Bacterial RNase P class A: a 400-nucleotide RNA from Gillisella ampelina.
RNA sequence: CCAGUCGGCCGGGCAGCCGCGCUUUACCAAUGCCGAAAGGCGGUAGGGUGAGGAAAGUCCGGGCUCCACGGAAACACGGUGCCGGAUAACGUCCGGCGAGGGCGACCUCAGGGAAAGUGCCACAGAAAGCAGACCGCCCCGUUUAUCGGGGUAAGGGUGAAAGGGUGGGGUAAGAGCCCACCGCGUCGCUGGUGACAGGGACGGCAUGGUAAACCCCACCGGGAGCAAGACCGAAUAGGGAUGACGCGGGUGCAACGCAAGUUGCGCUACAGCCGGUUUUCGGGCCAGUCAUCCGGGUGGGUUGCGAGAGGCGGUGCGCAAGUAUCGUCCCAGAUGAAUGGCUGCCACGUUCCGGGAAACCGGGGCCAUACAGAACCCGGCUUACAGGCCGACUGGUAUU
Numbered sequence: 001c002c003a004g005u006c007g008g009c010c011g012g013g014c015a016g017c018c019g020c021g022c023u024u025u026a027c028c029a030a031u032g033c034c035g036a037a038a039g040g041c042g043g044u045a046g047g048g049u050g051a052g053g054a055a056a057g058u059c060c061g062g063g064c065u066c067c068a069c070g071g072a073a074a075c076a077c078g079g080u081g082c083c084g085g086a087u088a089a090c091g092u093c094c095g096g097c098g099a100g101g102g103c104g105a106c107c108u109c110a111g112g113g114a115a116a117g118u119g120c121c122a123c124a125g126a127a128a129g130c131a132g133a134c135c136g137c138c139c140c141g142u143u144u145a146u147c148g149g150g151g152u153a154a155g156g157g158u159g160a161a162a163g164g165g166u167g168g169g170g171u172a173a174g175a176g177c178c179c180a181c182c183g184c185g186u187c188g189c190u191g192g193u194g195a196c197a198g199g200g201a202c203g204g205c206a207u208g209g210u211a212a213a214c215c216c217c218a219c220c221g222g223g224a225g226c227a228a229g230a231c232c233g234a235a236u237a238g239g240g241a242u243g244a245c246g247c248g249g250g251u252g253c254a255a256c257g258c259a260a261g262u263u264g265c266g267c268u269a270c271a272g273c274c275g276g277u278u279u280u281c282g283g284g285c286c287a288g289u290c291a292u293c294c295g296g297g298u299g300g301g302u303u304g305c306g307a308g309a310g311g312c313g314g315u316g317c318g319c320a321a322g323u324a325u326c327g328u329c330c331c332a333g334a335u336g337a338a339u340g341g342c343u344g345c346c347a348c349g350u351u352c353c354g355g356g357a358a359a360c361c362g363g364g365g366c367c368a369u370a371c372a373g374a375a376c377c378c379g380g381c382u383u384a385c386a387g388g389c390c391g392a393c394u395g396g397u398a399u400u
Stems, first nucleotide, its partner, number of pairs: 001396010011385001012346007020050009055383003059380005064225004072279004077221005082096005097111001098109004112216002117214002119210003134156002136152006164182006183205001184203004189198003229303004239294006272285003310329008
Lineage of the source: Bacteria > Alphaproteobacteria > Rhizobiaceae > Gillisella > Gillisella ampelina.